[Rfam]
The record is a 112-nucleotide RNA sequence from Solanum lycopersicum, which matches "Plastid-psbA-1 3UTR RNA" in Rfam. The family's RNA type in Rfam is cis-regulatory element.
RNA sequence: UCGGUUCGUAUCUACAAAUGGAUAAAAUCUCAGUCUAGUAUAAAGGAGGCUUUAAAAAAAAAAGAGAAAUAAUCAUUUUCCUGUUCUAUCAAGAAGGUGCUAUUGCUCCUUC
Numbered sequence: 001u002c003g004g005u006u007c008g009u010a011u012c013u014a015c016a017a018a019u020g021g022a023u024a025a026a027a028u029c030u031c032a033g034u035c036u037a038g039u040a041u042a043a044a045g046g047a048g049g050c051u052u053u054a055a056a057a058a059a060a061a062a063a064g065a066g067a068a069a070u071a072a073u074c075a076u077u078u079u080c081c082u083g084u085u086c087u088a089u090c091a092a093g094a095a096g097g098u099g100c101u102a103u104u105g106c107u108c109c110u111u112c
Stems, first nucleotide, its partner, number of pairs: 006022002009020003061111002064108003068104004074099003078095003082091001

A search with the family's covariance model found it, with a score of 57 bits. Plastid psbA-1 is a non-coding RNA (ncRNA) present in plastids. Its Rfam clan is "Plastid-psbA 3UTR RNA clan". The family's consensus secondary structure was predicted with LocARNA.